[Rfam]
RNA sequence: CGCCACCCCUUUGCUACUAGGUGGUUAAGAGGUGAGCCGAAAGGCCUUGCCUAGUCCCUCCAUUCGGGGCGACACUAUCAAAUUGUUCGGGGACGUCCUUAGAGCCUAGACUACCGCGGCCGAGCCGAAAGGUUCGGUGCAGCACCAGGGUAAUGACCUCGGGUGUGGUAAUAACGUCUAGGAUUGGGCAAUCCGCAGCCAAGCUCCUAAGUUCCUCGGAAUACGGAGAAGGUUCACAGACUAGAUGGUAGUGGGUACCUACGGGUGCUUAAGAUAUAGUCGAACCCUAUGGAAACAUAGGC
Dot-bracket structure: ....(.((.((((....)))).)).)....(......)..................................(((((.((...((..((((.....(((.(..................................................................................).)))...))))))((....((((....(((....)))...))))...))...[.[[[[[..)).))))).(((((....)))))........]]]]]]....(((((....)))))..

The family of this 302-nucleotide sequence from Neofusicoccum parvum is "Group I catalytic intron". Rfam 15.1 lists 5,602 matches to the family in 1,395 species. It scores 90 bits against the family's covariance model. Lineage of the source: Eukaryota > Dikarya > Ascomycota > Pezizomycotina > Neofusicoccum parvum.